[Rfam]
RNA: U5 spliceosomal RNA
RNA sequence: UUACUCUGGUUUCCCUUCAAAACGUAUAAAUCUUUCGCCUUUUACUAAAGAUUUCCGUGGAGGGGAACACUCAAAUGAGUCUAACUCAAAUUUUUGGUACCCUGCAAAGGGUCU
Numbered sequence: 001u002u003a004c005u006c007u008g009g010u011u012u013c014c015c016u017u018c019a020a021a022a023c024g025u026a027u028a029a030a031u032c033u034u035u036c037g038c039c040u041u042u043u044a045c046u047a048a049a050g051a052u053u054u055c056c057g058u059g060g061a062g063g064g065g066a067a068c069a070c071u072c073a074a075a076u077g078a079g080u081c082u083a084a085c086u087c088a089a090a091u092u093u094u095u096g097g098u099a100c101c102c103u104g105c106a107a108a109g110g111g112u113c114u
Stems, first nucleotide, its partner, number of pairs: 003080004009068011028054008099112005